RNA sequence: UGUCGAAGUUCCAUCUAUAAAUGGAUAAGAUUUCCGUAUUAAUGUAUACGAAUCGUUGAAGGAUCCAUGCCCGAUAUCUUGUUUUAGUAAGAUAUCGGGCAUGGAU
Numbered sequence: 001u002g003u004c005g006a007a008g009u010u011c012c013a014u015c016u017a018u019a020a021a022u023g024g025a026u027a028a029g030a031u032u033u034c035c036g037u038a039u040u041a042a043u044g045u046a047u048a049c050g051a052a053u054c055g056u057u058g059a060a061g062g063a064u065c066c067a068u069g070c071c072c073g074a075u076a077u078c079u080u081g082u083u084u085u086a087g088u089a090a091g092a093u094a095u096c097g098g099g100c101a102u103g104g105a106u
Base pairs, nucleotide, nucleotide: 010025011024012023013022014021063106064105065104066103067102068101069100070099072097073096074095076093077092078091079090080089

Plastid-psbA-1 3UTR RNA: a 106-nucleotide RNA from Iris gatesii. A reference for the family is Richter et al. (2023), "Retrograde signaling in plants: A critical review focusing on the GUN pathway and beyond", Plant Commun. By type it is a cis-regulatory element. Its Rfam clan is "Plastid-psbA 3UTR RNA clan". Rfam describes the family as follows. Plastid psbA-1 is a non-coding RNA (ncRNA) present in plastids. It was identified in inverted repeat sequences in the 3 prime untranslate region (3UTR) of photosystem II quinone-binding protein (psbA). It is one of the family's seed sequences.